[Rfam]
RNA sequence: CUGAAAGCGGCGAGAAGGGCGGACGUAUCUUCUGGGAUAUGAGCCCGGUACCAGCCAGCAGGUGGCAGGUACACGCCCGUUUCAG
Numbered sequence: 001c002u003g004a005a006a007g008c009g010g011c012g013a014g015a016a017g018g019g020c021g022g023a024c025g026u027a028u029c030u031u032c033u034g035g036g037a038u039a040u041g042a043g044c045c046c047g048g049u050a051c052c053a054g055c056c057a058g059c060a061g062g063u064g065g066c067a068g069g070u071a072c073a074c075g076c077c078c079g080u081u082u083c084a085g
Stems, first nucleotide, its partner, number of pairs: 001085005009077004017046003024041007049071004054066004